[Rfam]
RNA sequence: GGGUGUUCGUGUCUGGAUGGGCCGGGCAGGGGUUAGCGUUGGUCGGGCCGCCAGCG
Numbered sequence: 001g002g003g004u005g006u007u008c009g010u011g012u013c014u015g016g017a018u019g020g021g022c023c024g025g026g027c028a029g030g031g032g033u034u035a036g037c038g039u040u041g042g043u044c045g046g047g048c049c050g051c052c053a054g055c056g
Base pairs, nucleotide, nucleotide: 005027006026007025008024009023011022012021037056038055039054040053041052042051043050
Record summary
The record is a 56-nucleotide sequence from Siccirubricoccus deserti, which matches "nhaA-I RNA" in Rfam. Pairs were carried over by alignment from the consensus structure, which is taken from published work. It scores 45 bits against the family's covariance model. Taxonomically the source falls in Siccirubricoccus (Bacteria, Pseudomonadati, Pseudomonadota, Alphaproteobacteria). It is annotated as a riboswitch. Acidobacteria, Alphaproteobacteria, Betaproteobacteria and Gammaproteobacteria, Verrucomicrobia, cand. division NC10.